A member of the RNA family "Plant signal recognition particle RNA", 308 nucleotides long. The family's consensus secondary structure is taken from published work.
RNA sequence: GCCGAGCUUAGUCACGUGAGCUUGUAACCCAUGAGGGGGCUAUAUUGUAAUUGGAUAAAUGGCCGGCUUGUUUGGCCGGGUCGUAGGUGGCGGUUCACCUGCCUGCCCGGUCCAAGUGGUGAGUUGGGUCACGUGGCUCGGGCGAAGGUUCGGGCCACGUGGCUCCUAUAGCGGAGGGCAACGCGCUAGGCUGGCUUUACAGAGCAGCGACUACUUCCCGCUCUCCAUAGUGGAAGGAUAACAGGCCCGGUUGCUUUCUCGGCCCAUUAGAGGCUAAACGGGCUGGCCCAAUUUGAACAAUUACUUUU
Numbered sequence: 001g002c003c004g005a006g007c008u009u010a011g012u013c014a015c016g017u018g019a020g021c022u023u024g025u026a027a028c029c030c031a032u033g034a035g036g037g038g039g040c041u042a043u044a045u046u047g048u049a050a051u052u053g054g055a056u057a058a059a060u061g062g063c064c065g066g067c068u069u070g071u072u073u074g075g076c077c078g079g080g081u082c083g084u085a086g087g088u089g090g091c092g093g094u095u096c097a098c099c100u101g102c103c104u105g106c107c108c109g110g111u112c113c114a115a116g117u118g119g120u121g122a123g124u125u126g127g128g129u130c131a132c133g134u135g136g137c138u139c140g141g142g143c144g145a146a147g148g149u150u151c152g153g154g155c156c157a158c159g160u161g162g163c164u165c166c167u168a169u170a171g172c173g174g175a176g177g178g179c180a181a182c183g184c185g186c187u188a189g190g191c192u193g194g195c196u197u198u199a200c201a202g203a204g205c206a207g208c209g210a211c212u213a214c215u216u217c218c219c220g221c222u223c224u225c226c227a228u229a230g231u232g233g234a235a236g237g238a239u240a241a242c243a244g245g246c247c248c249g250g251u252u253g254c255u256u257u258c259u260c261g262g263c264c265c266a267u268u269a270g271a272g273g274c275u276a277a278a279c280g281g282g283c284u285g286g287c288c289c290a291a292u293u294u295g296a297a298c299a300a301u302u303a304c305u306u307u308u
Stems, first nucleotide, its partner, number of pairs: 001040003004023007028037003044307001047304007056295002058292001060290001061288006068281010078265006086257001089255002092252002098250002101246005107237002111234004116228004121223004126165018166171001173218005184209003191202003